A member of the RNA family "Small Cajal body specific RNA 4" from Pipistrellus kuhlii, 140 nucleotides long. Rfam links the family to the GO terms nucleolus, RNA processing and Cajal body. For this family Rfam cites "Cajal body-specific small nuclear RNAs: a novel class of 2'-O-methylation and pseudouridylation guide RNAs" (Darzacq et al., EMBO J, 2002). The family's RNA type in Rfam is small Cajal body RNA. scaRNAs are a specific class of small nuclear RNAs which localise to the Cajal bodies and guide the modification of RNA polymerase II transcribed spliceosomal RNAs U1, U2, U4, U5 and U12. ACA26 belongs to the H/ACA box class of guide RNAs as it has the predicted hairpin-hinge-hairpin-tail structure, conserved H/ACA-box motifs and is found associated with GAR1. Clan: SCARNA4 clan.
RNA sequence: ACUGGAGGACUAAGAAGGCUGAGUCUAAUGAAGCAAGACUCUGCUGAUACAAUCCUUCUAAAAAAAAAAAAAAAAACACGGUUGGAGAGAGCAGCUUUUAUUAGAGAAUAUCAUAGGGCUGACUGUACUAACCAACAUUC
Numbered sequence: 001a002c003u004g005g006a007g008g009a010c011u012a013a014g015a016a017g018g019c020u021g022a023g024u025c026u027a028a029u030g031a032a033g034c035a036a037g038a039c040u041c042u043g044c045u046g047a048u049a050c051a052a053u054c055c056u057u058c059u060a061a062a063a064a065a066a067a068a069a070a071a072a073a074a075a076a077c078a079c080g081g082u083u084g085g086a087g088a089g090a091g092c093a094g095c096u097u098u099u100a101u102u103a104g105a106g107a108a109u110a111u112c113a114u115a116g117g118g119c120u121g122a123c124u125g126u127a128c129u130a131a132c133c134a135a136c137a138u139u140c
Stems, first nucleotide, its partner, number of pairs: 003060001004058006017045003021041006080133004090124002092121007102113001104111001
NCBI's taxonomy places the organism under Eukaryota, Vertebrata, Dipnotetrapodomorpha, Theria, Pipistrellus. Rfam 15.1 lists 634 matches to the family in 510 species. The family's consensus secondary structure was predicted with RNAfold.